Small nucleolar RNA SNORA43: a 115-nucleotide RNA from Myotis myotis. A search with the family's covariance model found it, with a score of 90 bits. Its Rfam clan is "SNORA17 clan". Rfam describes the family as follows. ACA43 is a member of the H/ACA class of snoRNA that guide the sites of modification of uridines to pseudouridines.
RNA sequence: CAGGUGCUGGACCUGCUGGCACCACAGAUGCGGCAUCGGGCACAGAAGAAGUGGCUAUUUCUACGCGCAGUGCUCAGAACAGUGAGCACUAAGAAUGAUUUGUAGCCUGACAUUC
Number, nucleotide and partner (000 for none) at each position: 001c000002a000003g000004g041005u040006g000007c039008u038009g037010g036011a000012c000013c000014u000015g000016c000017u000018g000019g000020c000021a000022c000023c000024a000025c030026a000027g000028a000029u000030g025031c000032g000033g000034c000035a000036u010037c009038g008039g007040g005041c004042a000043c000044a000045g000046a000047a000048g000049a000050a000051g000052u000053g107054g106055c105056u000057a000058u000059u000060u000061c000062u097063a096064c000065g000066c093067g000068c000069a000070g000071u088072g087073c086074u085075c084076a083077g000078a000079a000080c000081a000082g000083u076084g075085a074086g073087c072088a071089c000090u000091a000092a000093g066094a000095a000096u063097g062098a000099u000100u000101u000102g000103u000104a000105g055106c054107c053108u000109g000110a000111c000112a000113u000114u000115c000